[Rfam]
Nucleotides: 133
Stems, first nucleotide, its partner, number of pairs: 003131001006128005017029003031113002033103002035065004060101002068079003083099005105116003
Number, partner (000 for none) and nucleotide at each position: 001000a002000a003131u004000c005000u006128g007127u008126u009125u010124c011000a012000g013000g014000g015000c016000g017029a018028g019027g020000u021000g022000a023000a024000a025000g026000u027019c028018c029017u030000c031113a032112c033103c034102g035065g036064u037063g038062g039000u040000g041000a042000u043000g044000c045000g046000c047000g048000u049000u050000u051000a052000g053000g054000c055000g056000a057000u058000a059000a060101g061100u062038c063037c064036a065035c066000g067000a068079g069078c070077c071000u072000u073000g074000c075000g076000g077070g078069g079068c080000c081000g082000a083099g084098c085097g086096g087095g088000u089000g090000g091000g092000a093000a094000u095087c096086c097085c098084g099083u100061a101060c102034c103033g104000a105116c106115g107114g108000u109000a110000u111000a112032g113031u114107c115106c116105g117000g118000a119000u120000g121000a122000a123000a124010g125009a126008a127007a128006c129000u130000c131003a132000g133000g
About this RNA: The family of this 133-nucleotide sequence from Zhenpiania hominis is "FMN riboswitch aptamer (RFN element)". On this family, see Serganov et al., Nature 2009: "Coenzyme recognition and gene regulation by a flavin mononucleotide riboswitch". A search with the family's covariance model found it, with a score of 104 bits. The source organism's lineage runs through Bacteria, Bacillota, Clostridia, Anaerovoracaceae and Zhenpiania.